[Rfam]
Annotation:
This 75-nucleotide sequence from Actinomadura chibensis belongs to the Rfam family "ASpks TB sRNA". A search with the family's covariance model found it, with a score of 74 bits. By type it is an antisense RNA. Taxonomically the source falls in Actinomadura (Bacteria, Bacillati, Actinomycetes, Streptosporangiales). Pairs were carried over by alignment from the consensus structure, which is taken from published work.
RNA sequence: CUUGAUCGAGCCGAGCCGCAGCGGCCGGUCGGAAGGCCGUUCCUGCCCGUAAGUGGCGAGCAAUGCCUGCGCUUC
Number, nucleotide and partner (000 for none) at each position: 001c000002u000003u000004g000005a000006u000007c000008g000009a000010g000011c000012c000013g000014a000015g025016c024017c023018g000019c000020a000021g000022c000023g017024g016025c015026c000027g000028g000029u000030c000031g000032g070033a000034a000035g000036g000037c000038c065039g064040u000041u000042c000043c060044u059045g000046c000047c056048c055049g054050u000051a000052a000053g000054u049055g048056g047057c000058g000059a044060g043061c000062a000063a000064u039065g038066c000067c000068u000069g000070c032071g000072c000073u000074u000075c000